[Rfam]
About this RNA
The family of this 186-nucleotide RNA sequence is "Bacteroidales-1 6S-Bacteroidales RNA suggested". The base pairs follow the family's consensus structure, which is taken from published work. The family's RNA type in Rfam is small RNA. On this family, see Ryan et al., Nat Commun 2020: "A high-resolution transcriptome map identifies small RNA regulation of metabolism in the gut microbe Bacteroides thetaiotaomicron".
RNA sequence: GGUUGUUCCGGUUUGAUCGGGAUACUCAUCAAAAUAAAACGAAACCGAGGAAGUUUCUCUUGUUAAUGGCGGGCCACAUAAAACCCUUAUGGGACUAAGCUGUAUAGCCGGUGGAUUACAAAGACGGAGAGCUCUCAAAUCCUAUUAGCUCGGAGUUUCAUCACAUGAGUGGGGCAAGCCCUUUUC
Dot-bracket structure: ....................................................(((.((((.(((..((.....((((......(((....))).....(((....)))..))))....))..))))))))))......................................................